[Rfam]
RNA sequence: GUUCUAGAUGUAGAGCUCAUCUCGUACAUCUUAUCUGGCCUAGGGCUGGACUAUGAAUCUUUUGUGACCUCCAUGUCUCACCAGCUUUUGCUUACAGUUGAUGAUCUGUAUGCUCACCUGAUUGCCUUUGAGC
Numbered sequence: 001g002u003u004c005u006a007g008a009u010g011u012a013g014a015g016c017u018c019a020u021c022u023c024g025u026a027c028a029u030c031u032u033a034u035c036u037g038g039c040c041u042a043g044g045g046c047u048g049g050a051c052u053a054u055g056a057a058u059c060u061u062u063u064g065u066g067a068c069c070u071c072c073a074u075g076u077c078u079c080a081c082c083a084g085c086u087u088u089u090g091c092u093u094a095c096a097g098u099u100g101a102u103g104a105u106c107u108g109u110a111u112g113c114u115c116a117c118c119u120g121a122u123u124g125c126c127u128u129u130g131a132g133c
Base pairs, nucleotide, nucleotide: 004132005131007129008128082100083099084098085097086096
RNA: Small nucleolar RNA Z247
Organism: Eragrostis curvula